The family of this 77-nucleotide sequence from Sulfitobacter sp. HI0023 is "Singlet oxygen resistance RNA X". Lineage of the source: Bacteria > Pseudomonadota > Rhodobacterales > Roseobacteraceae > Sulfitobacter. Rfam classes the family as a small RNA.
RNA sequence: AUCAUGAAGAUUGAGGCUGUCGCCUUUCUUCAUACCUCCCUGUUGGACUUGGCCGAGCUUUGAGCUCGGCCUUUUUU
Dot-bracket structure: ...(((((((................))))))).................((((((((.....))))))))......
Numbered sequence: 001a002u003c004a005u006g007a008a009g010a011u012u013g014a015g016g017c018u019g020u021c022g023c024c025u026u027u028c029u030u031c032a033u034a035c036c037u038c039c040c041u042g043u044u045g046g047a048c049u050u051g052g053c054c055g056a057g058c059u060u061u062g063a064g065c066u067c068g069g070c071c072u073u074u075u076u077u
Stems, first nucleotide, its partner, number of pairs: 004033007051071008
About this RNA:
Rfam's curators write: SorX (RSs2461)like SorY is a singlet oxygen induced sRNA that counteracts oxidative stress by targeting mRNA for a transporter in Rhodobacter. It also has an impact on resistance against organic hydroperoxides. It targets SD sequence of potA mRNA via an aSD sequence. A search with the family's covariance model found it, with a score of 53 bits. Rfam 15.1 lists 528 matches to the family in 356 species.